Overview: The family of this 250-nucleotide RNA sequence from Moorena producens is "HNH endonuclease-associated RNA and ORF (HEARO) RNA".
RNA sequence: GUCAGCACUCUCCUCUGAAGAGACCAGGCUGAGAUAGCCUCCCUUCAGGUAGCUGACCAGCCUAAGACCUUGACCGAAGGGGUUGCCCUUCUGGUAUUGGGUCUACGUUGUUGGCAAGUGUUAAAGUUCCUACCUUGGGGUAGAAUGCCCGCUCCAAGCUCUAGAACCGAGUCGUUAAACACUUAGACCAGGGGUAAAACAGUGCGGUUCGGAAAGUACCGACCAACAACGUUGGCCAGGCAAACCUUAC
Dot-bracket structure: (((((((.((...((....)).....))..((............))...).))))))..(((.((((((..............................)))))..((((((.......(((.....((....((((((((.[..[[[[.)))))))).....)).(((((((((...((..((..((.....))..))..)))))))))))........))).)))))).).)))..]]]]..].....

Background:
Lineage of the source: Bacteria > Cyanobacteriota > Coleofasciculaceae > Moorena > Moorena producens. The family's RNA type in Rfam is non-coding RNA gene. The match comes from Rfam's covariance-model search (107 bits). The family's consensus secondary structure is taken from published work. For this family Rfam cites "Exceptional structured noncoding RNAs revealed by bacterial metagenome analysis" (Weinberg et al., Nature, 2009).